[Rfam]
RNA: ZMP/ZTP riboswitch aptamer (pfl RNA motif)
Organism: Caldimonas caldifontis
RNA sequence: AUGGCGUUGCACAACUGGCGAUAAGGCCCGCCCCACAUCGGGGUGCGCGCCCGAGGUGGUGAACCACCGGGAAGUGCAGCCGGCUCCUGGUGAGCCGACCCGCCGUUCGCCUGGGCAGCCCUC
Numbered sequence: 001a002u003g004g005c006g007u008u009g010c011a012c013a014a015c016u017g018g019c020g021a022u023a024a025g026g027c028c029c030g031c032c033c034c035a036c037a038u039c040g041g042g043g044u045g046c047g048c049g050c051c052c053g054a055g056g057u058g059g060u061g062a063a064c065c066a067c068c069g070g071g072a073a074g075u076g077c078a079g080c081c082g083g084c085u086c087c088u089g090g091u092g093a094g095c096c097g098a099c100c101c102g103c104c105g106u107u108c109g110c111c112u113g114g115g116c117a118g119c120c121c122u123c
Stems, first nucleotide, its partner, number of pairs: 006080007015071002017111005056067004100118001102116003